[Rfam]
RNA sequence: UUUGGCAGAUGAUGAUAUAUUAUGUAAAUGCUGAAUAAUCAUGUCGAUUAUUUACUCCGCUUAUUAUCUGAUGCCAUU
Numbered sequence: 001u002u003u004g005g006c007a008g009a010u011g012a013u014g015a016u017a018u019a020u021u022a023u024g025u026a027a028a029u030g031c032u033g034a035a036u037a038a039u040c041a042u043g044u045c046g047a048u049u050a051u052u053u054a055c056u057c058c059g060c061u062u063a064u065u066a067u068c069u070g071a072u073g074c075c076a077u078u
Stems, first nucleotide, its partner, number of pairs: 003076005
RNA: Small nucleolar RNA R16